[Rfam]
RNA sequence: GAUGUCCUGUGAUGAAGAAAUGGAAUUAGCGCUGGGCGCAGCGCCUGAAAUGCAUGAGGAACUAUUCCAUGCUGCCUUCCUUCUGAGGACUAU
Numbered sequence: 001g002a003u004g005u006c007c008u009g010u011g012a013u014g015a016a017g018a019a020a021u022g023g024a025a026u027u028a029g030c031g032c033u034g035g036g037c038g039c040a041g042c043g044c045c046u047g048a049a050a051u052g053c054a055u056g057a058g059g060a061a062c063u064a065u066u067c068c069a070u071g072c073u074g075c076c077u078u079c080c081u082u083c084u085g086a087g088g089a090c091u092a093u
Stems, first nucleotide, its partner, number of pairs: 002093002004090002

The family of this 93-nucleotide sequence from Xenopus laevis is "Small nucleolar RNA U83B". U83B belongs to the C/D family of snoRNAs. A search with the family's covariance model found it, with a score of 81 bits. Rfam classes the family as a C/D-box small nucleolar RNA. On this family, see Duga et al., Biochim Biophys Acta 2000: "The intron-containing L3 ribosomal protein gene (RPL3): sequence analysis and identification of U43 and of two novel intronic small nucleolar RNAs". Taxonomically the source falls in Xenopus (Eukaryota, Opisthokonta, Bilateria, Sarcopterygii).